Rfam assigns this 187-nucleotide RNA to the family "malK-I RNA". Rfam classes the family as a cis-regulatory element. It is one of the family's seed sequences.
[Rfam]
RNA sequence: CAGCAGGAGGUCUCUCUACUCCACGCGCAAGCCAUAGAGAGGCCUCUGAAAAAAAGGAGGAAUACCAAAAUCCGCCGGACUCGCGGUACGGCAGUGUGGAGACCUGUCGUAAUGUGGUGUCGCCAGCAUGGGCGACCACGAGAUGCAUGGCGCGGAUGCCCCUGCAUCGGAGUCAGAACGUAUGGCA
Numbered sequence: 001c002a003g004c005a006g007g008a009g010g011u012c013u014c015u016c017u018a019c020u021c022c023a024c025g026c027g028c029a030a031g032c033c034a035u036a037g038a039g040a041g042g043c044c045u046c047u048g049a050a051a052a053a054a055a056g057g058a059g060g061a062a063u064a065c066c067a068a069a070a071u072c073c074g075c076c077g078g079a080c081u082c083g084c085g086g087u088a089c090g091g092c093a094g095u096g097u098g099g100a101g102a103c104c105u106g107u108c109g110u111a112a113u114g115u116g117g118u119g120u121c122g123c124c125a126g127c128a129u130g131g132g133c134g135a136c137c138a139c140g141a142g143a144u145g146c147a148u149g150g151c152g153c154g155g156a157u158g159c160c161c162c163u164g165c166a167u168c169g170g171a172g173u174c175a176g177a178a179c180g181u182a183u184g185g186c187a
Stems, first nucleotide, its partner, number of pairs: 007046012072086004076176001078174005087111008096103002114139005121134002142168006149161001152159002